[Rfam]
RNA sequence: UGAGUAUGAAAGGUAAUCGCCAGUACGAAGGUAUUGGAGGAAAGUCCGAGCUCCGUAGGGCAGGAUGCCGGAUAACGUCCGGCGAAGGUGACUUUAGGGACAGUGCCACAGAAAUGUGUACCGCCACGUAAGUGGUAAGGGUGGAACGGUGCGGUAAGAGCGCACCAGCGGUAAGGUAACUUGCCGGCUAGGUAAACCCCAUCCGGAGCAAGACCGAAUAGGGAAGGGAUGAAGUUGCCCGCUGAUCUUCCGGGUUGUGUCGCUCGAACAGGCCGGCAACGGUCUGUCUAGAUAGAUGAUUACCACUGCGCAAGCAGAACAAAACUCGGCUUAUUGAUUACUCAUCAU
Numbered sequence: 001u002g003a004g005u006a007u008g009a010a011a012g013g014u015a016a017u018c019g020c021c022a023g024u025a026c027g028a029a030g031g032u033a034u035u036g037g038a039g040g041a042a043a044g045u046c047c048g049a050g051c052u053c054c055g056u057a058g059g060g061c062a063g064g065a066u067g068c069c070g071g072a073u074a075a076c077g078u079c080c081g082g083c084g085a086a087g088g089u090g091a092c093u094u095u096a097g098g099g100a101c102a103g104u105g106c107c108a109c110a111g112a113a114a115u116g117u118g119u120a121c122c123g124c125c126a127c128g129u130a131a132g133u134g135g136u137a138a139g140g141g142u143g144g145a146a147c148g149g150u151g152c153g154g155u156a157a158g159a160g161c162g163c164a165c166c167a168g169c170g171g172u173a174a175g176g177u178a179a180c181u182u183g184c185c186g187g188c189u190a191g192g193u194a195a196a197c198c199c200c201a202u203c204c205g206g207a208g209c210a211a212g213a214c215c216g217a218a219u220a221g222g223g224a225a226g227g228g229a230u231g232a233a234g235u236u237g238c239c240c241g242c243u244g245a246u247c248u249u250c251c252g253g254g255u256u257g258u259g260u261c262g263c264u265c266g267a268a269c270a271g272g273c274c275g276g277c278a279a280c281g282g283u284c285u286g287u288c289u290a291g292a293u294a295g296a297u298g299a300u301u302a303c304c305a306c307u308g309c310g311c312a313a314g315c316a317g318a319a320c321a322a323a324a325c326u327c328g329g330c331u332u333a334u335u336g337a338u339u340a341c342u343c344a345u346c347a348u
Stems, first nucleotide, its partner, number of pairs: 001344006010335002012304007020037007042332003046329005051208004058240004063204005068082005083097001084095004098199002103197002105193003121140002123136005148166006168188001169186007212261003215257001222251006233243003268287008
About this RNA
A member of the RNA family "Bacterial RNase P class A" from Megasphaera micronuciformis, 348 nucleotides long. Taxonomically the source falls in Megasphaera micronuciformis (Bacteria, Bacillota, Negativicutes, Veillonellaceae). It scores 288 bits against the family's covariance model.